[Rfam]
RNA sequence: GUAUAGACUUGUAGAGUCUCGUAACCAUGGGUAAAAAUAAGCCCCUUAAAGUAGUAAUACUUUAAUGCAAAUAGGGUGAAUUGCAAAGACAUCCAUUAUAUGGACAAUUCGCAGCGAAGUAUAUAACUGCAUUUUAUUGUUAUAUAAACGUUCAACGACUAGAUGGUGAGUAAUGCUAACAAUAACCCAUCCACGAGCGCCCUACAACCAAUUAAUUUUAUAAUAUUUAAAUGGUUGAAGACAUAGUCUAAGCCAAUAGGUAACUAUUGG
Numbered sequence: 001g002u003a004u005a006g007a008c009u010u011g012u013a014g015a016g017u018c019u020c021g022u023a024a025c026c027a028u029g030g031g032u033a034a035a036a037a038u039a040a041g042c043c044c045c046u047u048a049a050a051g052u053a054g055u056a057a058u059a060c061u062u063u064a065a066u067g068c069a070a071a072u073a074g075g076g077u078g079a080a081u082u083g084c085a086a087a088g089a090c091a092u093c094c095a096u097u098a099u100a101u102g103g104a105c106a107a108u109u110c111g112c113a114g115c116g117a118a119g120u121a122u123a124u125a126a127c128u129g130c131a132u133u134u135u136a137u138u139g140u141u142a143u144a145u146a147a148a149c150g151u152u153c154a155a156c157g158a159c160u161a162g163a164u165g166g167u168g169a170g171u172a173a174u175g176c177u178a179a180c181a182a183u184a185a186c187c188c189a190u191c192c193a194c195g196a197g198c199g200c201c202c203u204a205c206a207a208c209c210a211a212u213u214a215a216u217u218u219u220a221u222a223a224u225a226u227u228u229a230a231a232u233g234g235u236u237g238a239a240g241a242c243a244u245a246g247u248c249u250a251a252g253c254c255a256a257u258a259g260g261u262a263a264c265u266a267u268u269g270g
Stems, first nucleotide, its partner, number of pairs: 005046002010041001012039002050061003072204004077199002082113003086109002092104005114151002125141003129137001155249001157248005207235004212230004255268005

A member of the RNA family "Group I catalytic intron" from Mortierella polycephala, 270 nucleotides long. A reference for the family is Cech (1990), "Self-splicing of group I introns", Annu Rev Biochem. From the family's description: Group I catalytic introns are large self-splicing ribozymes. Lineage of the source: Eukaryota > Opisthokonta > Mortierellomycota > Mortierellomycetes > Mortierella.